The family of this 122-nucleotide sequence from Paraburkholderia tropica is "Burkholderia RNA 11". Gene Ontology term of the family: protein binding. Pairs were carried over by alignment from the consensus structure, which was predicted with RNAfold. A reference for the family is Ramos et al. (2013), "Experimental identification of small non-coding regulatory RNAs in the opportunistic human pathogen Burkholderia cenocepacia J2315", Genomics.
RNA sequence: GCAAUCUGCGGCUCGCGCACGGCAAUCGCACGGUUUUCCUGAGCCUGCUCGGCAUUUCGUGGCUGUGGUUCGUGGGCGCGACCUUUCUGGCGUCGUUCUUCAAUUUCGCGAAGGACGUGCUG
Numbered sequence: 001g002c003a004a005u006c007u008g009c010g011g012c013u014c015g016c017g018c019a020c021g022g023c024a025a026u027c028g029c030a031c032g033g034u035u036u037u038c039c040u041g042a043g044c045c046u047g048c049u050c051g052g053c054a055u056u057u058c059g060u061g062g063c064u065g066u067g068g069u070u071c072g073u074g075g076g077c078g079c080g081a082c083c084u085u086u087c088u089g090g091c092g093u094c095g096u097u098c099u100u101c102a103a104u105u106u107c108g109c110g111a112a113g114g115a116c117g118u119g120c121u122g
Stems, first nucleotide, its partner, number of pairs: 010049003015044001018041002021038002024035003051121005057115002060112001067099002071095002075091001077089002080087002
Dot-bracket structure: .........(((..(..((.((.(((......))).)).))..)..))).(((((.((.(......((..((..(.((.((....)))).)..))..))............).)).))))).